The record is a 99-nucleotide RNA from Arachidicoccus rhizosphaerae, which matches "TPP riboswitch aptamer (THI element)" in Rfam. The family's consensus secondary structure is taken from published work.
[Rfam]
RNA sequence: CAGAACAUCUCGGGGAGCUGUGGAUAAAACGGCUGAGAAUCAAACCCGCAAAACCUGAUCAGGAUAAUAUCUGCGUAGGAAUCGAUGUAAAGAGCGUUU
Numbered sequence: 001c002a003g004a005a006c007a008u009c010u011c012g013g014g015g016a017g018c019u020g021u022g023g024a025u026a027a028a029a030c031g032g033c034u035g036a037g038a039a040u041c042a043a044a045c046c047c048g049c050a051a052a053a054c055c056u057g058a059u060c061a062g063g064a065u066a067a068u069a070u071c072u073g074c075g076u077a078g079g080a081a082u083c084g085a086u087g088u089a090a091a092g093a094g095c096g097u098u099u
Stems, first nucleotide, its partner, number of pairs: 006087004011048004017033005054079004060073004
Vitamin B(1) in its active form thiamin pyrophosphate (TPP) is an essential coenzyme that is synthesised by coupling of pyrimidine and thiazole moieties in bacteria.